A member of the RNA family "A. fumigatus sRNA Afu_309" from Bipolaris sorokiniana, 301 nucleotides long. A search with the family's covariance model found it, with a score of 93 bits. On this family, see Jochl et al., Nucleic Acids Res 2008: "Small ncRNA transcriptome analysis from Aspergillus fumigatus suggests a novel mechanism for regulation of protein synthesis".
RNA sequence: AUGUUCUCUCCACCAACGCCCUGUGUCAGAAUCUCCCAUCCACCGCCCAGAGGGCUUGCUCUCUGCGGCGGUGUGUAUCGGUUGCAGAUGCUGACAGCUCGUCCAUCAUGGAGCCAUCUUCUUCCCGGUAGAUUGUUUCGGACGACAGGAGCGGAGAACAACUUUGGCAGCUUCCGGCAGCCUGAGCUCACCGCAAGGUUCGAGCUCGGUGUAUGGUUGUCUGUCAGGCAGACUGAUUCCGUCUCCCUUUUGCUAGGCCGUCGGCCGUUGAUGCUUGGGACUAACCCAGUCGGCUACAUAU
Numbered sequence: 001a002u003g004u005u006c007u008c009u010c011c012a013c014c015a016a017c018g019c020c021c022u023g024u025g026u027c028a029g030a031a032u033c034u035c036c037c038a039u040c041c042a043c044c045g046c047c048c049a050g051a052g053g054g055c056u057u058g059c060u061c062u063c064u065g066c067g068g069c070g071g072u073g074u075g076u077a078u079c080g081g082u083u084g085c086a087g088a089u090g091c092u093g094a095c096a097g098c099u100c101g102u103c104c105a106u107c108a109u110g111g112a113g114c115c116a117u118c119u120u121c122u123u124c125c126c127g128g129u130a131g132a133u134u135g136u137u138u139c140g141g142a143c144g145a146c147a148g149g150a151g152c153g154g155a156g157a158a159c160a161a162c163u164u165u166g167g168c169a170g171c172u173u174c175c176g177g178c179a180g181c182c183u184g185a186g187c188u189c190a191c192c193g194c195a196a197g198g199u200u201c202g203a204g205c206u207c208g209g210u211g212u213a214u215g216g217u218u219g220u221c222u223g224u225c226a227g228g229c230a231g232a233c234u235g236a237u238u239c240c241g242u243c244u245c246c247c248u249u250u251u252g253c254u255a256g257g258c259c260g261u262c263g264g265c266c267g268u269u270g271a272u273g274c275u276u277g278g279g280a281c282u283a284a285c286c287c288a289g290u291c292g293g294c295u296a297c298a299u300a301u
Base pairs, nucleotide, nucleotide: 017153018152019151020149021148022147023146024145025095026094027093028092029091031089032088033087034084035081036080038078039077040075042072043071044070045069046068047067048065049064050063051062052061053060054059103144106141107140110133113129114128115127164223166221178211179210181208184207185206186205187204188203189202191198192197228294229293231291232290233289234288235287244280245279246278247277252274253273256266257265258264259263